A member of the RNA family "Small nucleolar RNA SNORD91 family" from Crypturellus soui, 92 nucleotides long. A search with the family's covariance model found it, with a score of 54 bits. Rfam links the family to the GO terms nucleolus and RNA processing. The family has 24 seed sequences and 977 matches in Rfam 15.1.
RNA sequence: GCAGGAAGCCUGUGAUGUGCUAGCCGUGAUGUCUGAACCUGGCUGAAGGCUCUUCUGAAGAUGCUCCUUUAGGCUCUGAGGCUUCCAGGGGA
Numbered sequence: 001g002c003a004g005g006a007a008g009c010c011u012g013u014g015a016u017g018u019g020c021u022a023g024c025c026g027u028g029a030u031g032u033c034u035g036a037a038c039c040u041g042g043c044u045g046a047a048g049g050c051u052c053u054u055c056u057g058a059a060g061a062u063g064c065u066c067c068u069u070u071a072g073g074c075u076c077u078g079a080g081g082c083u084u085c086c087a088g089g090g091g092a
Stems, first nucleotide, its partner, number of pairs: 004086007